[Rfam]
RNA sequence: GGCUGGUCCAAAUGCAGUAGUUACAACUAACUGAUCACAGCCAGUUACAGAUUUCUUUGCUUCUUCACUCCUACUGCUUCACCUGACUAGCCCCCA
Number, nucleotide and partner (000 for none) at each position: 001g092002g091003c090004u089005g088006g087007u086008c085009c000010a084011a000012a000013u000014g080015c000016a075017g074018u073019a072020g071021u000022u000023a000024c000025a061026a000027c059028u000029a057030a056031c000032u000033g000034a000035u000036c000037a000038c000039a000040g000041c000042c000043a000044g000045u000046u000047a000048c000049a000050g000051a000052u000053u000054u000055c000056u030057u029058u000059g027060c000061u025062u000063c000064u000065u000066c000067a000068c000069u000070c000071c020072u019073a018074c017075u016076g000077c000078u000079u000080c014081a000082c000083c000084u010085g008086a007087c006088u005089a004090g003091c002092c001093c000094c000095c000096a000
RNA: Y RNA